[Rfam]
RNA sequence: GGCGAUAAACGGUGCUCGGAAUAAGCGUAGUGGACCCGGGGGCAGUACCCGGCGCCUCCACCAUCACCCCAGGCUCGCUUGGGGCUCAUGGGGGCGAAACAGGCUCGACACGCGCGGUAAAGGUACAUCUUUUGCUCGGCAUGAUACCGCCGUUAUCGGGUCAUUUUACAAAUGCCAAUGAUAACCAUGAGGCAUUCGCUAUCGCUGCGUAA
Numbered sequence: 001g002g003c004g005a006u007a008a009a010c011g012g013u014g015c016u017c018g019g020a021a022u023a024a025g026c027g028u029a030g031u032g033g034a035c036c037c038g039g040g041g042g043c044a045g046u047a048c049c050c051g052g053c054g055c056c057u058c059c060a061c062c063a064u065c066a067c068c069c070c071a072g073g074c075u076c077g078c079u080u081g082g083g084g085c086u087c088a089u090g091g092g093g094g095c096g097a098a099a100c101a102g103g104c105u106c107g108a109c110a111c112g113c114g115c116g117g118u119a120a121a122g123g124u125a126c127a128u129c130u131u132u133u134g135c136u137c138g139g140c141a142u143g144a145u146a147c148c149g150c151c152g153u154u155a156u157c158g159g160g161u162c163a164u165u166u167u168a169c170a171a172a173u174g175c176c177a178a179u180g181a182u183a184a185c186c187a188u189g190a191g192g193c194a195u196u197c198g199c200u201a202u203c204g205c206u207g208c209g210u211a212a
Stems, first nucleotide, its partner, number of pairs: 001136005014126001017123001026114003030111003036052005053096007137152004

The record is a 212-nucleotide sequence from Acidisoma silvae, which matches "permuted transfer-messenger RNA" in Rfam. Pairs were carried over by alignment from the consensus structure, which is taken from published work. By type it is a non-coding RNA gene. The source organism's lineage runs through Bacteria, Pseudomonadota, Alphaproteobacteria, Acetobacterales and Acidisoma.